[Rfam]
Nucleotides: 365
Base pairs, nucleotide, nucleotide: 001332002331003330011326012325013324014323015322016321017320019318020317021316036060037059038058039057040056045050061091062090063089064088065087066086067085068084069083070082071081072080092096104311105310106309107308108307109306110305111303112302115129116128117127132167133166134165135164136163137162138161139160140157143154144153145152146151170298171297172296173295175230176229177228180227181226182223183222184221185220186219189218190217191216196211197210198209199208200207231249232248233247234246235245236244250254270286271285272284273283274282275281346363347362348361349360350359
Number, partner (000 for none) and nucleotide at each position: 001332g002331g003330g004000a005000u006000u007000u008000a009000a010000a011326c012325a013324g014323g015322g016321u017320a018000a019318g020317g021316g022000a023000a024000a025000u026000c027000g028000g029000c030000a031000a032000g033000u034000u035000a036060g037059u038058c039057c040056c041000g042000u043000a044000a045050g046000u047000u048000c049000g050045c051000a052000a053000u054000a055000a056040g057039g058038g059037a060036u061091c062090c063089c064088u065087g066086a067085u068084u069083u070082g071081g072080u073000c074000u075000u076000a077000a078000a079000a080072g081071c082070u083069a084068a085067a086066u087065c088064a089063g090062g091061g092096c093000g094000c095000a096092g097000u098000g099000a100000c101000g102000a103000a104311g105310g106309g107308a108307g109306u110305c111303u112302a113000a114000c115129u116128g117127u118000u119000u120000a121000c122000u123000a124000a125000a126000a127117g128116c129115a130000u131000a132167g133166c134165u135164g136163g137162c138161u139160g140157c141000u142000a143154g144153a145152g146151a147000g148000c149000a150000a151146u152145c153144u154143u155000u156000u157140g158000u159000a160139c161138a162137g163136c164135c165134g166133g167132c168000g169000a170298c171297a172296u173295c174000u175230g176229c177228c178000c179000a180227g181226c182223a183222u184221a185220g186219g187000u188000a189218u190217c191216c192000g193000a194000a195000a196211a197210u198209c199208u200207g201000u202000u203000u204000c205000a206000a207200c208199g209198g210197g211196u212000a213000u214000a215000a216191g217190g218189a219186c220185c221184u222183a223182u224000u225000a226181g227180c228177g229176g230175c231249g232248g233247a234246g235245g236244u237000a238000a239000c240000u241000g242000u243000g244236a245235c246234c247233u248232u249231c250254u251000u252000a253000a254250g255000c256000a257000a258000g259000c260000a261000u262000a263000a264000u265000c266000c267000a268000u269000u270286g271285c272284c273283a274282a275281u276000u277000g278000a279000u280000u281275g282274u283273u284272g285271g286270c287000u288000u289000g290000u291000g292000a293000a294000c295173g296172a297171u298170g299000u300000a301000a302112u303111g304000a305110g306109a307108u308107u309106c310105c311104c312000g313000c314000u315000g316021u317020c318019c319000c320017u321016a322015c323014c324013u325012u326011g327000a328000a329000a330003c331002c332001c333000g334000c335000g336000a337000a338000a339000c340000c341000a342000c343000c344000g345000u346363c347362c348361u349360g350359g351000u352000g353000c354000a355000a356000a357000g358000g359350c360349c361348a362347g363346g364000g365000a